[Rfam]
RNA sequence: ACAGAGGGGGAUUCCUGGGAUGGGAUUUUUAUUACAUAGACAUAAAUCACAUUGCCAGGGAUUUCCAACUUCGG
Numbered sequence: 001a002c003a004g005a006g007g008g009g010g011a012u013u014c015c016u017g018g019g020a021u022g023g024g025a026u027u028u029u030u031a032u033u034a035c036a037u038a039g040a041c042a043u044a045a046a047u048c049a050c051a052u053u054g055c056c057a058g059g060g061a062u063u064u065c066c067a068a069c070u071u072c073g074g
Stems, first nucleotide, its partner, number of pairs: 002073001004071003009066002011062008020053001021051002024048005
RNA: mir-23 microRNA precursor family